[Rfam]
RNA sequence: UUUCUAUCUUUGAAUUUCAGAUGAAAAAAUCGAAUACAAAUAACUGGUGGUGGAAAAACUUACGUCCGAUGUCGUGAGAAAAGCACUAUGGUUAUAACAUAUAGCAAGGCUUGUC
Number, nucleotide and partner (000 for none) at each position: 001u000002u000003u000004c000005u000006a000007u000008c000009u000010u000011u000012g000013a000014a000015u000016u000017u000018c000019a000020g000021a000022u000023g000024a000025a000026a000027a000028a000029a000030u000031c000032g000033a000034a000035u000036a000037c000038a000039a000040a095041u094042a093043a092044c091045u090046g089047g000048u000049g087050g086051u085052g084053g000054a000055a000056a000057a000058a000059c078060u077061u076062a072063c071064g070065u000066c000067c000068g000069a000070u064071g063072u062073c000074g000075u000076g061077a060078g059079a000080a000081a000082a000083g000084c052085a051086c050087u049088a000089u046090g045091g044092u043093u042094a041095u040096a000097a000098c000099a000100u000101a000102u000103a000104g000105c000106a000107a000108g000109g000110c000111u000112u000113g000114u000115c000